The family of this 46-nucleotide RNA sequence from Caulifigura coniformis is "Acido-Lenti-1 RNA". The family's consensus secondary structure is taken from published work. The source organism's lineage runs through Bacteria, Pseudomonadati, Planctomycetota, Planctomycetales and Caulifigura.

RNA sequence: CCGGGUGCUGACGCACCCGGCUAAGCAGUGUCGCUCCUUCGGAGCU
Numbered sequence: 001c002c003g004g005g006u007g008c009u010g011a012c013g014c015a016c017c018c019g020g021c022u023a024a025g026c027a028g029u030g031u032c033g034c035u036c037c038u039u040c041g042g043a044g045c046u
Stems, first nucleotide, its partner, number of pairs: 001020008033045005